[Rfam]
The family of this 114-nucleotide RNA sequence from Treponema pedis is "TD-1 RNA".
RNA sequence: GUUAACCGUCGAGUUUGCCUUUCGGCAAACAUCGCUUAUUAAACAUGUGCGCUUUUCGCGCACUAAUUGAACACCUUCCAAAGUUCAUACUUUGUUCAGUUGUUCAAUUUUAAG
Numbered sequence: 001g002u003u004a005a006c007c008g009u010c011g012a013g014u015u016u017g018c019c020u021u022u023c024g025g026c027a028a029a030c031a032u033c034g035c036u037u038a039u040u041a042a043a044c045a046u047g048u049g050c051g052c053u054u055u056u057c058g059c060g061c062a063c064u065a066a067u068u069g070a071a072c073a074c075c076u077u078c079c080a081a082a083g084u085u086c087a088u089a090c091u092u093u094g095u096u097c098a099g100u101u102g103u104u105c106a107a108u109u110u111u112a113a114g
Stems, first nucleotide, its partner, number of pairs: 011033002013030007047063006066108008075099002079094006
The source organism's lineage runs through Bacteria, Spirochaetota, Spirochaetia, Treponema and Treponema pedis.
Rfam classes the family as a cis-regulatory element.